RNA: Bacterial large subunit ribosomal RNA, nucleotides 606 to 838
Organism: Saccharicrinis fermentans
RNA sequence: GAGUUAGUCGUAGUUGGCAAGGUUAAGGGCCUCAGUCCCGGAGCCGAAGCGAAAGCGAGUCUUAAUAGGGCGAAUAAGUCAGCUGCGCUAGACGCGAAACCAGGUGAUCUACCCAUGGUCAGGUUGAAGUUCCGGUAACACGGAAUGGAGGACCGAACCGCCAGACGUUGAAAAGUCUUCGGAUGAACUGUGGGUAGGGGUGAAAGGCCAAUCAAACCUGGAAAUAGCUCGUA
Numbered sequence: 001g002a003g004u005u006a007g008u009c010g011u012a013g014u015u016g017g018c019a020a021g022g023u024u025a026a027g028g029g030c031c032u033c034a035g036u037c038c039c040g041g042a043g044c045c046g047a048a049g050c051g052a053a054a055g056c057g058a059g060u061c062u063u064a065a066u067a068g069g070g071c072g073a074a075u076a077a078g079u080c081a082g083c084u085g086c087g088c089u090a091g092a093c094g095c096g097a098a099a100c101c102a103g104g105u106g107a108u109c110u111a112c113c114c115a116u117g118g119u120c121a122g123g124u125u126g127a128a129g130u131u132c133c134g135g136u137a138a139c140a141c142g143g144a145a146u147g148g149a150g151g152a153c154c155g156a157a158c159c160g161c162c163a164g165a166c167g168u169u170g171a172a173a174a175g176u177c178u179u180c181g182g183a184u185g186a187a188c189u190g191u192g193g194g195u196a197g198g199g200g201u202g203a204a205a206g207g208c209c210a211a212u213c214a215a216a217c218c219u220g221g222a223a224a225u226a227g228c229u230c231g232u233a
Stems, first nucleotide, its partner, number of pairs: 005090003009087010021045004027039003049056002059071004093231002096228001100221006109197011120185001122154004129146006158182003163178004199209003